Description
Group II catalytic intron D1-D4-7: a 142-nucleotide RNA sequence from Pyrrhoderma noxium. The organism belongs to Pyrrhoderma, within Eukaryota. Rfam describes the family as follows. Group II introns are found in rRNA, tRNA and mRNA of organelles in fungi, plants and protists, and also in mRNA in bacteria. Rfam links the family to the GO term Group II intron splicing.
RNA sequence: CCACAAGUACUCUCUUGUGAUCCUAUCUGGACAUGCGCUGCUGGUAACGGCGGGGUGUGAAGCUCUAGAGACAAUGCUCUUAAUUACAGAAGUCACUUUAUGUAAUGGGUUAGGAUAAAUUACUAUUGCGAUUUAUUAAAUU
Numbered sequence: 001c002c003a004c005a006a007g008u009a010c011u012c013u014c015u016u017g018u019g020a021u022c023c024u025a026u027c028u029g030g031a032c033a034u035g036c037g038c039u040g041c042u043g044g045u046a047a048c049g050g051c052g053g054g055g056u057g058u059g060a061a062g063c064u065c066u067a068g069a070g071a072c073a074a075u076g077c078u079c080u081u082a083a084u085u086a087c088a089g090a091a092g093u094c095a096c097u098u099u100a101u102g103u104a105a106u107g108g109g110u111u112a113g114g115a116u117a118a119a120u121u122a123c124u125a126u127u128g129c130g131a132u133u134u135a136u137u138a139a140a141u142u
Stems, first nucleotide, its partner, number of pairs: 002019006027068005032059005038053006082097001084095001086093002098138001100136002